[Rfam]
RNA sequence: CUCUGUCUCGCGGGAGACGUCGGGGGUCCGCCUCCGAGGCCGAAGGCGCAACCGCCCCGGAAACGCUCAGGCAAAAGGGACCGCGAGAAGACC
Dot-bracket structure: .....((((((((......((((..........)))).(((((..(((...((.....))...))))).)))........)))))))).....
The record is a 93-nucleotide sequence from Caulobacter mirabilis, which matches "Glycine riboswitch aptamer" in Rfam. The base pairs follow the family's consensus structure. The family is grouped with related families in Rfam's "Glycine riboswitch clan".